The record is a 95-nucleotide RNA sequence from Sagittula stellata, which matches "TPP riboswitch aptamer (THI element)" in Rfam. The match comes from Rfam's covariance-model search (68 bits).
[Rfam]
RNA sequence: CACAAGCGACGGGGGCGCUCGGGAAACCGGGCUGAGACGUACCCUUCGAACCUGAACCGGAUAAUGCCGGCGGAGGGAGGCGCAGCGGAACGUCC
Numbered sequence: 001c002a003c004a005a006g007c008g009a010c011g012g013g014g015g016c017g018c019u020c021g022g023g024a025a026a027c028c029g030g031g032c033u034g035a036g037a038c039g040u041a042c043c044c045u046u047c048g049a050a051c052c053u054g055a056a057c058c059g060g061a062u063a064a065u066g067c068c069g070g071c072g073g074a075g076g077g078a079g080g081c082g083c084a085g086c087g088g089a090a091c092g093u094c095c
Base pairs, nucleotide, nucleotide: 006083007082008081010079011045012044013043014042016039017032018031019030020029021028051076052075053074057070058069059068060067